[Rfam]
RNA sequence: GUAGUUGGAUCUCCAAGUUUUUGGAAUACUCCAAAUUC
Numbered sequence: 001g002u003a004g005u006u007g008g009a010u011c012u013c014c015a016a017g018u019u020u021u022u023g024g025a026a027u028a029c030u031c032c033a034a035a036u037u038c
Stems, first nucleotide, its partner, number of pairs: 003018001005016004020035006
Shown here is a 38-nucleotide sequence from Citrus reticulata, a member of the family "Plastid psbT antisense RNA". Plastid-psbT-asRNA is an antisense RNA (asRNA) motif reported in Plastids It has been shown that psbT expression is controlled by two antisense RNAs originated from psbN transcription by the nuclear-encoded polymerase (NEP), in which the short antisense RNA hybridizes to psbT CDS, thereby stabilizing psbT transcript while blocking its translation during photooxidative stress. The organism belongs to Citrus, within Eukaryota.